[Rfam]
RNA: Small nucleolar RNA U109
Organism: Neogobius melanostomus
RNA sequence: CUGCAUGUUUCAGCUUUGUGCUGACGAUGUCCACUCCUUUUCUUUGUGGGAGUAGACGCCUAAAAACAUGCCAGAUUAAAAUGGAAACUAAGGGAGUUAACAGGGCCACCAGUCUCUGAGCACAGGCUGAGUUGGUAGUAUAAUACUCCUACAUUC
Numbered sequence: 001c002u003g004c005a006u007g008u009u010u011c012a013g014c015u016u017u018g019u020g021c022u023g024a025c026g027a028u029g030u031c032c033a034c035u036c037c038u039u040u041u042c043u044u045u046g047u048g049g050g051a052g053u054a055g056a057c058g059c060c061u062a063a064a065a066a067c068a069u070g071c072c073a074g075a076u077u078a079a080a081a082u083g084g085a086a087a088c089u090a091a092g093g094g095a096g097u098u099a100a101c102a103g104g105g106c107c108a109c110c111a112g113u114c115u116c117u118g119a120g121c122a123c124a125g126g127c128u129g130a131g132u133u134g135g136u137a138g139u140a141u142a143a144u145a146c147u148c149c150u151a152c153a154u155u156c
Stems, first nucleotide, its partner, number of pairs: 003071006027053002030050005093149004105136002109131001110129006
Dot-bracket structure: ..((((((..................((.(((((...........))))).))............)))))).....................((((........((..(((((((........)))))).)...)).........)))).......